[Rfam]
RNA: Archaeal small subunit ribosomal RNA, nucleotides 1 to 524
Organism: Acidianus manzaensis
RNA sequence: UUUCCGGUUGAUCCUGCCGGACCCGACUGCUAUGGGGGUAGGGCUAAGCCAUGGGAGUCGAACGCUCUCGGUAAGAGGGCGUGGCAGACGGCUGAGUAACACGUGGCUAACUUACCCUCGGGACCUGGAUAACUCCGGGAAACUGGAGCUAAUCCAGGAUAGACAAAGAGUUCUGGAACGAUUCUUUGUCGAAAGGCCCUUAGGCUGUAUCCCGUCUAAGGGUGCCCGAGGAUAGGGCUGCGGCCCAUCAGGCUGAUGGCGAGGUAACGGCUCGCCAAACCGAUAACGGGUAGGGGCCGUGAGAGCGGGAGCCCCCAGUUGGGCACUGAGACAAGGGCCCAGGUCCUACGGGGCGCACCAGGCGCGAAACGUCUCCAAUGCGGGAAACCGUGAGAGCGCUACCCCCAGUGCCCUCGAAAGAGGGCUUUUCCCUACUGCAGACAGGUAGGGGAAUAAGCGGGGGGCAAGGCUGGUGUCAGCCGCCGCGGUAAUACCAGCCCCGCGAGUAGUCGGGACGCUUACUG
Numbered sequence: 001u002u003u004c005c006g007g008u009u010g011a012u013c014c015u016g017c018c019g020g021a022c023c024c025g026a027c028u029g030c031u032a033u034g035g036g037g038g039u040a041g042g043g044c045u046a047a048g049c050c051a052u053g054g055g056a057g058u059c060g061a062a063c064g065c066u067c068u069c070g071g072u073a074a075g076a077g078g079g080c081g082u083g084g085c086a087g088a089c090g091g092c093u094g095a096g097u098a099a100c101a102c103g104u105g106g107c108u109a110a111c112u113u114a115c116c117c118u119c120g121g122g123a124c125c126u127g128g129a130u131a132a133c134u135c136c137g138g139g140a141a142a143c144u145g146g147a148g149c150u151a152a153u154c155c156a157g158g159a160u161a162g163a164c165a166a167a168g169a170g171u172u173c174u175g176g177a178a179c180g181a182u183u184c185u186u187u188g189u190c191g192a193a194a195g196g197c198c199c200u201u202a203g204g205c206u207g208u209a210u211c212c213c214g215u216c217u218a219a220g221g222g223u224g225c226c227c228g229a230g231g232a233u234a235g236g237g238c239u240g241c242g243g244c245c246c247a248u249c250a251g252g253c254u255g256a257u258g259g260c261g262a263g264g265u266a267a268c269g270g271c272u273c274g275c276c277a278a279a280c281c282g283a284u285a286a287c288g289g290g291u292a293g294g295g296g297c298c299g300u301g302a303g304a305g306c307g308g309g310a311g312c313c314c315c316c317a318g319u320u321g322g323g324c325a326c327u328g329a330g331a332c333a334a335g336g337g338c339c340c341a342g343g344u345c346c347u348a349c350g351g352g353g354c355g356c357a358c359c360a361g362g363c364g365c366g367a368a369a370c371g372u373c374u375c376c377a378a379u380g381c382g383g384g385a386a387a388c389c390g391u392g393a394g395a396g397c398g399c400u401a402c403c404c405c406c407a408g409u410g411c412c413c414u415c416g417a418a419a420g421a422g423g424g425c426u427u428u429u430c431c432c433u434a435c436u437g438c439a440g441a442c443a444g445g446u447a448g449g450g451g452a453a454u455a456a457g458c459g460g461g462g463g464g465c466a467a468g469g470c471u472g473g474u475g476u477c478a479g480c481c482g483c484c485g486c487g488g489u490a491a492u493a494c495c496a497g498c499c500c501c502g503c504g505a506g507u508a509g510u511c512g513g514g515a516c517g518c519u520u521a522c523u524g
Base pairs, nucleotide, nucleotide: 004020005019006018007017008016022514023513024512025511026510027509028508029507030506031505033407034406035405036404037403038402039401040400041399042365048363049362050361052360053359054358057085058084059083062082063081064080065079066078067077068076092318093317094316102242103241104240105239106238107237108236111235112234116231117230118229119228120227121226122225124158125157126156127155133148134147135146136145137144138143163189164188165187166186167185168184169183170182172181173180196223197222198221199220200219201218202217203216204215205214244290245289246288251281252280257277258276259275260274261273262272263271293315294314295313296312297308298307299306300305320341321340322339323338324337343354344353345352346351371397373396374395375394379392380391381390382389383388410425411424412423413422414421415420430450431449432448433447434446435445436444457503458502459501460500461499462498470497471496472495473494479486480485